Shown here is a 120-nucleotide RNA sequence from Streptomyces sp. 136MFCol5.1, a member of the family "Streptomyces-metH RNA". The family's consensus secondary structure is taken from published work. It scores 101 bits against the family's covariance model.
RNA sequence: CCGUCCGUCACGUGGGACACAGUGACGCUCCGAGGCGCUGCCCGGCUACCCUGGCGAGGUGCGGCCUCUUCCGGAAGCCGUGAAGCCGACAGCCGUCGCAUCCCAGGGAGCACAUCCAUG
Numbered sequence: 001c002c003g004u005c006c007g008u009c010a011c012g013u014g015g016g017a018c019a020c021a022g023u024g025a026c027g028c029u030c031c032g033a034g035g036c037g038c039u040g041c042c043c044g045g046c047u048a049c050c051c052u053g054g055c056g057a058g059g060u061g062c063g064g065c066c067u068c069u070u071c072c073g074g075a076a077g078c079c080g081u082g083a084a085g086c087c088g089a090c091a092g093c094c095g096u097c098g099c100a101u102c103c104c105a106g107g108g109a110g111c112a113c114a115u116c117c118a119u120g
Stems, first nucleotide, its partner, number of pairs: 060082004065077001067075002085099002088097003